[Rfam]
RNA: Caulobacter sRNA CC3664
Organism: Caulobacter henricii
RNA sequence: GUCGGCUGAUCGGACAUCUCGUCGUCCAGGACCCUGAACAGCCCCCCAGCCCCCCUUGAUCGCGGGCCGGUCGGCCGACAGACCUAAACCCCUCCCCUACCGAGCCCGCGCGGUCUUCCCCCCCCCAACCGCGCGGGCU
Numbered sequence: 001g002u003c004g005g006c007u008g009a010u011c012g013g014a015c016a017u018c019u020c021g022u023c024g025u026c027c028a029g030g031a032c033c034c035u036g037a038a039c040a041g042c043c044c045c046c047c048a049g050c051c052c053c054c055c056u057u058g059a060u061c062g063c064g065g066g067c068c069g070g071u072c073g074g075c076c077g078a079c080a081g082a083c084c085u086a087a088a089c090c091c092c093u094c095c096c097c098u099a100c101c102g103a104g105c106c107c108g109c110g111c112g113g114u115c116u117u118c119c120c121c122c123c124c125c126c127a128a129c130c131g132c133g134c135g136g137g138c139u
Stems, first nucleotide, its partner, number of pairs: 001079013018066005024060003029054002034049003103139011